[Rfam]
Shown here is a 168-nucleotide RNA sequence from Tombusvirus melongenae, a member of the family "Tombusvirus 5' UTR". Pairs were carried over by alignment from the consensus structure, which is taken from published work. It is annotated as a cis-regulatory element. From the family's description: Tomato bushy stunt virus is the prototype member of the Tombusviridae family. In addition to viral proteins p33 and the RNA-dependent RNA polymerase p92, and unknown host factors, RNA signals within the UTRs are necessary for genome replication. 2 RNA domains in the 5' UTR have been reported, a 5' T-shaped domain (TSD) followed by a stem-loop (SL5) and a downstream domain (DSD). These domains are combined into a single family here. On this family, see Ray et al., RNA 2003: "A second functional RNA domain in the 5' UTR of the Tomato bushy stunt virus genome: Intra- and interdomain interactions mediate viral RNA replication".
RNA sequence: GAAAUUCCUCAGAUUUCUCCCUGUUGACCAGGAGUUAUCGGUGAGUUGCGCUUUGUGCUUUGCGUAAGGGAUUUCUCUCGUACAGGUACGAUCUCGGACCAGCUACGGGUUUGAAGGGUGAGCCUAUUCUUCGGAAGGGUAAAUUGUAACUUUCACCAAUAAGCAAUG
Numbered sequence: 001g002a003a004a005u006u007c008c009u010c011a012g013a014u015u016u017c018u019c020c021c022u023g024u025u026g027a028c029c030a031g032g033a034g035u036u037a038u039c040g041g042u043g044a045g046u047u048g049c050g051c052u053u054u055g056u057g058c059u060u061u062g063c064g065u066a067a068g069g070g071a072u073u074u075c076u077c078u079c080g081u082a083c084a085g086g087u088a089c090g091a092u093c094u095c096g097g098a099c100c101a102g103c104u105a106c107g108g109g110u111u112u113g114a115a116g117g118g119u120g121a122g123c124c125u126a127u128u129c130u131u132c133g134g135a136a137g138g139g140u141a142a143a144u145u146g147u148a149a150c151u152u153u154c155a156c157c158a159a160u161a162a163g164c165a166a167u168g
Base pairs, nucleotide, nucleotide: 001075002074003073004072005071006070007069008068009067012039013038014037047066048065049064050063051062077109078108079107080106081105117157118156119155120154121153123139124138125137127136128135129134